[Rfam]
This 78-nucleotide sequence from Aphidius gifuensis belongs to the Rfam family "mir-219 microRNA precursor family". Taxonomically the source falls in Aphidius (Eukaryota, Insecta, Endopterygota, Ichneumonoidea). A reference for the family is Lim et al. (2003), "Vertebrate microRNA genes", Science. The base pairs follow the family's consensus structure, which was predicted with RNAalifold.
RNA sequence: CCAAGCUAUGAUUGUCCAAACGCAAUUCUUGUCUAUUCGAUUCGAUAUCAAGAACUGUGUGGGGACAUCAGCGCUUGG
Numbered sequence: 001c002c003a004a005g006c007u008a009u010g011a012u013u014g015u016c017c018a019a020a021c022g023c024a025a026u027u028c029u030u031g032u033c034u035a036u037u038c039g040a041u042u043c044g045a046u047a048u049c050a051a052g053a054a055c056u057g058u059g060u061g062g063g064g065a066c067a068u069c070a071g072c073g074c075u076u077g078g
Base pairs, nucleotide, nucleotide: 002077003076004075005074006073009070010069011068012067014066015065016064017063021059022058023057024056026054027053028052029051030050031049